[Rfam]
RNA sequence: UCUUGGCUUAGUUAGGAGGCGCAUAUGAAAUGAGCAUCUGAUGCUCAUCCAGGCCUUUUGAGGGGGCAACUCAUCUGUGUUAACUAGAUGUGCUCCCCAAGCAGCCCGAGACAUUU
Numbered sequence: 001u002c003u004u005g006g007c008u009u010a011g012u013u014a015g016g017a018g019g020c021g022c023a024u025a026u027g028a029a030a031u032g033a034g035c036a037u038c039u040g041a042u043g044c045u046c047a048u049c050c051a052g053g054c055c056u057u058u059u060g061a062g063g064g065g066g067c068a069a070c071u072c073a074u075c076u077g078u079g080u081u082a083a084c085u086a087g088a089u090g091u092g093c094u095c096c097c098c099a100a101g102c103a104g105c106c107c108g109a110g111a112c113a114u115u116u
Stems, first nucleotide, its partner, number of pairs: 004021002007018003032046005048110001050108001052106003057101004062097007070090001
Rfam assigns this 116-nucleotide sequence from Aegilops tauschii to the family "Small nucleolar RNA U19". The source organism's lineage runs through Eukaryota, Streptophyta, Mesangiospermae, Poales and Aegilops tauschii.